[Rfam]
The record is a 71-nucleotide sequence from Lupinus angustifolius, which matches "Small nucleolar RNA snoR60" in Rfam. It is annotated as a C/D-box small nucleolar RNA. The family has 10 seed sequences and 1,133 matches in Rfam 15.1. NCBI's taxonomy places the organism under Eukaryota, Embryophyta, Magnoliopsida, Fabales, Lupinus. Its Rfam clan is "SNORD101 clan". The match comes from Rfam's covariance-model search (86 bits). For this family Rfam cites "Fibrillarin genes encode both a conserved nucleolar protein and a novel small nucleolar RNA involved in ribosomal RNA methylation in Arabidopsis thaliana" (Barneche et al., J Biol Chem, 2000). Gene Ontology terms of the family: RNA processing and nucleolus.
Nucleotides: 071
Base pairs, nucleotide, nucleotide: 002071003070004069005068
Number, partner (000 for none) and nucleotide at each position: 001000a002071u003070g004069c005068a006000c007000a008000u009000g010000a011000u012000g013000a014000u015000u016000u017000a018000c019000u020000c021000g022000g023000a024000u025000u026000c027000c028000c029000c030000u031000u032000c033000a034000a035000g036000a037000c038000c039000u040000c041000u042000u043000g044000g045000a046000u047000g048000a049000u050000g051000c052000a053000a054000a055000c056000c057000c058000g059000a060000g061000a062000u063000u064000c065000u066000g067000a068005u069004g070003c071002g